RNA sequence: CAUGCACAUGAUUAUAAAAGAAUAGGGACAUCAGAAUUCUUCAAGGAUAGUGAUGACAUCUUCAUAUGGGAAUCUCUAUGAUGCACU
Numbered sequence: 001c002a003u004g005c006a007c008a009u010g011a012u013u014a015u016a017a018a019a020g021a022a023u024a025g026g027g028a029c030a031u032c033a034g035a036a037u038u039c040u041u042c043a044a045g046g047a048u049a050g051u052g053a054u055g056a057c058a059u060c061u062u063c064a065u066a067u068g069g070g071a072a073u074c075u076c077u078a079u080g081a082u083g084c085a086c087u
Base pairs, nucleotide, nucleotide: 003085004084005083006082
Shown here is an 87-nucleotide RNA from Adiantum capillus-veneris, a member of the family "Small nucleolar RNA R44/J54/Z268 family". The family is grouped with related families in Rfam's "SNORD74 clan". Gene Ontology terms of the family: nucleolus and RNA processing. It scores 52 bits against the family's covariance model.